[Rfam]
RNA sequence: UAGAAUAAUAUAGAUAAGGGAAGUUAGUAAAAUAGAUCUAUAACUUUAGGAUAAGGAUUAGCUUUAAGGGUUAGGUAUAUUAAGCUUUAGGCAGAUAGCUUAGGAGUAGGUUGCUACUAGCUAGGUUUCUAGCUAGAGGCUUCUAGUAUCUAGGUUCUAACACCUUUAGUAGGCUUUAGCCAUCUAGUAUAUAGUUAAUAACUAACUUAGAACUAAUAUAGAUAAGAGGAAUCUAACUAUCUAAUUAAAAUAUAGUAUUAUAAUAGCUAGAAAGUAGUAUUAACGUAAUAUAAUUUCUACUUAGUGUUCUAAAUAUUAAAGUGAAGUAAUUUAACUAAGCGUAGGUAAAUAGUAGGAGUAACUAUAACUUUCUUAAGGUAGCUAAAUACCUUGUUAUCUAAUUAGUAACGCGUAUAAAUAGAUUAAUAAGAUUCCUACUAUCCCUAUCUACUAUCUAGUAAAACUAUAGCUAAGGGAAUAGGCUUAGUAGA
Number, nucleotide and partner (000 for none) at each position: 001u457002a456003g455004a454005a000006u000007a000008a000009u000010a000011u450012a449013g448014a447015u446016a445017a000018g443019g442020g441021a000022a000023g000024u000025u000026a000027g000028u000029a000030a000031a000032a000033u000034a000035g059036a058037u057038c056039u055040a000041u000042a000043a000044c049045u000046u000047u000048a000049g044050g000051a000052u000053a000054a000055g039056g038057a037058u036059u035060a214061g213062c000063u211064u210065u209066a208067a207068g206069g203070g202071u201072u200073a199074g000075g192076u191077a190078u189079a188080u187081u186082a185083a000084g170085c169086u168087u000088u000089a165090g164091g163092c000093a000094g000095a000096u000097a156098g155099c154100u153101u152102a151103g150104g149105a000106g147107u146108a000109g144110g143111u000112u000113g140114c139115u138116a000117c136118u135119a134120g133121c132122u131123a130124g129125g000126u000127u000128u000129c124130u123131a122132g121133c120134u119135a118136g117137a000138g115139g114140c113141u000142u000143c110144u109145a000146g107147u106148a000149u104150c103151u102152a101153g100154g099155u098156u097157c000158u000159a000160a000161c000162a000163c091164c090165u089166u000167u000168a086169g085170u084171a000172g000173g000174c000175u000176u000177u000178a000179g000180c000181c000182a000183u000184c000185u082186a081187g080188u079189a078190u077191a076192u075193a000194g000195u000196u000197a000198a000199u073200a072201a071202c070203u069204a000205a000206c068207u067208u066209a065210g064211a063212a000213c061214u060215a219216a000217u000218a000219u215220a000221g000222a000223u000224a000225a000226g000227a436228g435229g434230a433231a432232u431233c430234u428235a427236a000237c000238u252239a251240u250241c000242u000243a000244a000245u000246u000247a000248a000249a000250a240251u239252a238253u000254a000255g291256u290257a289258u288259u287260a286261u285262a000263a000264u000265a000266g278267c277268u276269a275270g000271a000272a000273a000274g000275u269276a268277g267278u266279a000280u000281u000282a000283a000284c000285g261286u260287a259288a258289u257290a256291u255292a000293a000294u000295u422296u421297c000298u000299a353300c352301u351302u000303a000304g350305u349306g346307u345308u344309c000310u000311a342312a000313a000314u341315a000316u339317u000318a000319a000320a000321g000322u333323g332324a331325a330326g000327u000328a000329a000330u325331u324332u323333a322334a000335c000336u000337a000338a000339g316340c000341g314342u311343a000344g308345g307346u306347a000348a000349a305350u304351a301352g300353u299354a000355g371356g370357a369358g368359u367360a000361a000362c000363u000364a000365u000366a000367a359368c358369u357370u356371u355372c000373u377374u000375a000376a000377g373378g000379u000380a000381g000382c000383u000384a000385a000386a000387u000388a000389c000390c000391u000392u000393g409394u408395u407396a406397u405398c000399u000400a000401a000402u000403u000404a000405g397406u396407a395408a394409c393410g000411c000412g000413u000414a000415u000416a000417a000418a000419u000420a000421g296422a295423u000424u000425a000426a000427u235428a234429a000430g233431a232432u231433u230434c229435c228436u227437a000438c000439u000440a000441u020442c019443c018444c000445u016446a015447u014448c013449u012450a011451c000452u000453a000454u004455c003456u002457a001458g000459u000460a000461a000462a000463a000464c000465u000466a000467u000468a000469g000470c487471u486472a485473a484474g483475g000476g000477a000478a000479u000480a000481g000482g000483c474484u473485u472486a471487g470488u000489a000490g000491a000

About this RNA
Rfam assigns this 491-nucleotide part of an RNA from Colletotrichum asianum to the family "Eukaryotic large subunit ribosomal RNA". Its family is annotated with ribosome and structural constituent of ribosome in the Gene Ontology. Lineage of the source: Eukaryota > Dikarya > saccharomyceta > Sordariomycetes > Colletotrichum gloeosporioides species complex.